[Rfam]
RNA: TPP riboswitch aptamer (THI element)
Organism: Rubellimicrobium thermophilum
RNA sequence: ACCUCGGGGUGCCCCAAGGGGGGCUGAGAUGCGCGGGAUGCGCGCGAACCCGUCGAACCUGAACCGGUUAGCACCGGCGGAGGGAAGGU
Numbered sequence: 001a002c003c004u005c006g007g008g009g010u011g012c013c014c015c016a017a018g019g020g021g022g023g024c025u026g027a028g029a030u031g032c033g034c035g036g037g038a039u040g041c042g043c044g045c046g047a048a049c050c051c052g053u054c055g056a057a058c059c060u061g062a063a064c065c066g067g068u069u070a071g072c073a074c075c076g077g078c079g080g081a082g083g084g085a086a087g088g089u
Stems, first nucleotide, its partner, number of pairs: 001089004005052004010046001011024005031045005058083003064077004